[Rfam]
RNA: mir-9242 microRNA precursor family
RNA sequence: GGCCUCCCUCUGUGGGCUGAUCUAUCGCGGGGCCCCCAGAUUGAUCACCCCGCAGAGGGAGGCC
Number, nucleotide and partner (000 for none) at each position: 001g064002g063003c062004c061005u060006c059007c058008c057009u056010c055011u054012g053013u052014g051015g050016g049017c000018u047019g046020a045021u044022c043023u000024a041025u040026c039027g000028c000029g036030g035031g000032g000033c000034c000035c030036c029037c000038a000039g026040a025041u024042u000043g022044a021045u020046c019047a018048c000049c016050c015051c014052g013053c012054a011055g010056a009057g008058g007059g006060a005061g004062g003063c002064c001